[Rfam]
RNA sequence: AGCUGGAAGGAAAACCCCUGACGUCCACAGUUGGACUAAGGUAAGUUCCUAACAGCCCC
Numbered sequence: 001a002g003c004u005g006g007a008a009g010g011a012a013a014a015c016c017c018c019u020g021a022c023g024u025c026c027a028c029a030g031u032u033g034g035a036c037u038a039a040g041g042u043a044a045g046u047u048c049c050u051a052a053c054a055g056c057c058c059c
Stems, first nucleotide, its partner, number of pairs: 002056004008050005017041003023036005
The family of this 59-nucleotide RNA sequence is "Pestivirus 3' UTR SLI". It is annotated as a cis-regulatory element. The sequence is in the family's curated seed alignment. On this family, see Kokkonos et al., Nucleic Acids Res 2020: "Evolutionary selection of pestivirus variants with altered or no microRNA dependency". Pairs were carried over by alignment from the consensus structure.